Rfam assigns this 153-nucleotide sequence to the family "RT-14 RNA".
RNA sequence: UUUUCUCAUAUAGUCAGCAUACGCCGCAACACGCGGGCGGCGUACCGUACAGAGAGAAGAAAAGGGGCAUAUUUCCCUGCUUGCAGCGAUGCGAGCAAAACAAAAAUUUCCAUGAAUACGGUUAGUAGCAAAAGCAAAGGGCGUAACGCAUGG
Numbered sequence: 001u002u003u004u005c006u007c008a009u010a011u012a013g014u015c016a017g018c019a020u021a022c023g024c025c026g027c028a029a030c031a032c033g034c035g036g037g038c039g040g041c042g043u044a045c046c047g048u049a050c051a052g053a054g055a056g057a058a059g060a061a062a063a064g065g066g067g068c069a070u071a072u073u074u075c076c077c078u079g080c081u082u083g084c085a086g087c088g089a090u091g092c093g094a095g096c097a098a099a100a101c102a103a104a105a106a107u108u109u110c111c112a113u114g115a116a117u118a119c120g121g122u123u124a125g126u127a128g129c130a131a132a133a134g135c136a137a138a139g140g141g142c143g144u145a146a147c148g149c150a151u152g153g
Stems, first nucleotide, its partner, number of pairs: 003058005009052001013050002020044008079096007110153005117145004122140001128135002